The record is a 136-nucleotide RNA sequence from Cavia porcellus, which matches "Small nucleolar RNA SNORA22" in Rfam. Rfam describes the family as follows. ACA22 is a member of the H/ACA class of snoRNA that guide the sites of modification of uridines to pseudouridines. Gene Ontology terms of the family: nucleolus and RNA processing. By type it is an H/ACA-box small nucleolar RNA. Pairs were carried over by alignment from the consensus structure, which was predicted with RNAfold. The family has 31 seed sequences and 883 matches in Rfam 15.1.
RNA sequence: UUGCACAGUGAACACCCAAGUGUGCUUUGUAGUUCCUUGGCUUUGACUCUGUGCUAGAGUAAUGUCCUGUUCUUUCCCUCUGCAUUGAAAGGACUAUUUUUUUCCUUUUAAAUGUAUUCAGAAAGGCAGCACAUAC
Numbered sequence: 001u002u003g004c005a006c007a008g009u010g011a012a013c014a015c016c017c018a019a020g021u022g023u024g025c026u027u028u029g030u031a032g033u034u035c036c037u038u039g040g041c042u043u044u045g046a047c048u049c050u051g052u053g054c055u056a057g058a059g060u061a062a063u064g065u066c067c068u069g070u071u072c073u074u075u076c077c078c079u080c081u082g083c084a085u086u087g088a089a090a091g092g093a094c095u096a097u098u099u100u101u102u103u104c105c106u107u108u109u110a111a112a113u114g115u116a117u118u119c120a121g122a123a124a125g126g127c128a129g130c131a132c133a134u135a136c
Stems, first nucleotide, its partner, number of pairs: 003054006010048001013045002016040005022035001024033003056073006079122004083114004087109007